[Rfam]
RNA sequence: UUCCAGGACAUACUGGUGAGGAUGUCAAAAAUGCAAUUGAGGCCCUCA
Numbered sequence: 001u002u003c004c005a006g007g008a009c010a011u012a013c014u015g016g017u018g019a020g021g022a023u024g025u026c027a028a029a030a031a032u033g034c035a036a037u038u039g040a041g042g043c044c045c046u047c048a
Base pairs, nucleotide, nucleotide: 002041004039005038006037018047019046020045021044023042

Record summary:
A member of the RNA family "Pseudoknot of influenza A virus gene", 48 nucleotides long. By type it is a cis-regulatory element. On this family, see Gultyaev et al., Bioinformatics 2007: "An RNA conformational shift in recent H5N1 influenza A viruses". Pairs were carried over by alignment from the consensus structure, which is taken from published work.